[Rfam]
Nucleotides: 241
Base pairs, nucleotide, nucleotide: 002140003139004138005137006136007135008134010128011127012126013125014124018122019121020120021119022118023117024116025115026092027091028090029089030088031087034084035083036082037081039080040079041078042077044076047073048072049071050070053067056065057064058063093109094108095107096106097105098104154236155235156234157233158232161229163227164226165225166224173219174218175217176216177215178214179213184211185210186202187201188200
Number, partner (000 for none) and nucleotide at each position: 001000c002140a003139c004138a005137u006136g007135c008134u009000c010128c011127u012126u013125a014124g015000a016000u017000c018122c019121a020120u021119c022118u023117u024116u025115g026092u027091g028090a029089g030088u031087a032000u033000c034084u035083u036082u037081g038000u039080g040079c041078u042077g043000a044076g045000u046000u047073c048072u049071g050070c051000u052000g053067g054000a055000u056065a057064a058063c059000u060000u061000c062000a063058g064057u065056u066000u067053c068000u069000a070050g071049c072048a073047g074000u075000u076044c077042c078041a079040g080039u081037c082036a083035a084034a085000g086000u087031u088030g089029c090028u091027c092026g093109g094108c095107a096106a097105c098104u099000u100000u101000u102000u103000u104098g105097g106096u107095u108094g109093u110000a111000c112000g113000g114000u115025c116024a117023a118022a119021g120020a121019u122018g123000c124014u125013u126012g127011a128010g129000u130000c131000a132000u133000u134008g135007g136006c137005a138004u139003g140002u141000g142000a143000g144000a145000g146000u147000a148000a149000u150000a151000u152000a153000a154236c155235u156234g157233c158232a159000u160000g161229u162000u163227a164226g165225c166224u167000u168000u169000c170000u171000g172000u173219u174218c175217u176216g177215a178214u179213a180000a181000a182000a183000g184211u185210g186202a187201c188200u189000g190000u191000a192000a193000a194000u195000a196000u197000g198000a199000g200188a201187g202186u203000c204000a205000u206000u207000u208000a209000c210185c211184g212000c213179u214178a215177u216176c217175a218174g219173g220000a221000c222000a223000u224166g225165g226164c227163u228000g229161g230000u231000a232158u233157g234156c235155a236154g237000a238000c239000a240000u241000u